[Rfam]
RNA sequence: GACCCCGGAUGUCGUGAGGCCUCUGUCCGCUCAGUGGCCCUGGUGCACCUUCCCCGGCACCAGGUUCGCAGCGGGCGGGCGGGGACCUGACGGCAUCCGGGGUCUACA
Numbered sequence: 001g002a003c004c005c006c007g008g009a010u011g012u013c014g015u016g017a018g019g020c021c022u023c024u025g026u027c028c029g030c031u032c033a034g035u036g037g038c039c040c041u042g043g044u045g046c047a048c049c050u051u052c053c054c055c056g057g058c059a060c061c062a063g064g065u066u067c068g069c070a071g072c073g074g075g076c077g078g079g080c081g082g083g084g085a086c087c088u089g090a091c092g093g094c095a096u097c098c099g100g101g102g103u104c105u106a107c108a
Stems, first nucleotide, its partner, number of pairs: 010095006018087002021084012034069004039064008